[Rfam]
RNA sequence: GGGUCCGGCGAGCCACGAACUCCCCCAAAGAACCUGGAGUAAAGAACCACCUGCCCUCCCUCCCCUCCCCCUCGUCACCCGGAAGGGUGACCGGCUUGCGGGGGCGGGAAGCGGGCGGUUACGUUCGCCGCAACAACCCCAGACAUAUGACGGCCCCCGGCCAGGACGGCAAUCCUGAUCGAGGGCCUCACCGAUCAGGAAGAGAUCCACUUCCCG
Number, nucleotide and partner (000 for none) at each position: 001g000002g000003g000004u000005c000006c000007g195008g000009c193010g192011a000012g000013c000014c000015a000016c000017g000018a000019a000020c000021u000022c000023c000024c000025c000026c000027a000028a000029a000030g000031a000032a000033c000034c000035u000036g000037g000038a000039g000040u000041a000042a000043a000044g000045a000046a000047c000048c000049a000050c000051c000052u000053g000054c000055c000056c000057u000058c000059c000060c000061u000062c000063c000064c000065c000066u000067c000068c000069c000070c000071c000072u000073c000074g000075u090076c089077a088078c087079c086080c085081g000082g000083a000084a000085g080086g079087g078088u077089g076090a075091c000092c000093g000094g000095c000096u000097u000098g000099c000100g000101g000102g000103g129104g128105c127106g126107g125108g000109a000110a000111g000112c000113g000114g000115g000116c000117g000118g000119u000120u000121a000122c000123g000124u000125u107126c106127g105128c104129c103130g000131c000132a000133a000134c000135a000136a000137c000138c000139c000140c000141a000142g000143a000144c000145a000146u000147a000148u000149g000150a000151c000152g187153g186154c185155c184156c183157c000158c181159g180160g000161c000162c000163a176164g175165g174166a173167c000168g000169g000170c000171a000172a000173u166174c165175c164176u163177g000178a000179u000180c159181g158182a000183g156184g155185g154186c153187c152188u000189c000190a000191c000192c010193g009194a000195u007196c000197a000198g214199g213200a212201a211202g210203a000204g000205a000206u000207c000208c000209a000210c202211u201212u200213c199214c198215c000216g000
Background: The record is a 216-nucleotide RNA from Streptomyces sp. ISL-1, which matches "Streptomyces sRNA 4677" in Rfam. The pairing is the family consensus, mapped onto this sequence. Rfam describes the family as follows. Located in the intergenic region between anti-sigma factor SCO4677 gene and a putative regulatory protein gene SCO4676. scr4677 expression requires the SCO4677 activity and scr4677 sRNA itself seem to affect the levels of the SCO4676-associated transcripts. It is annotated as a small RNA. Taxonomically the source falls in Streptomyces (Bacteria, Bacillati, Actinomycetota, Kitasatosporales). The literature on the family includes a 2014 paper in PLoS One by Hindra et al., "Complex intra-operonic dynamics mediated by a small RNA in Streptomyces coelicolor".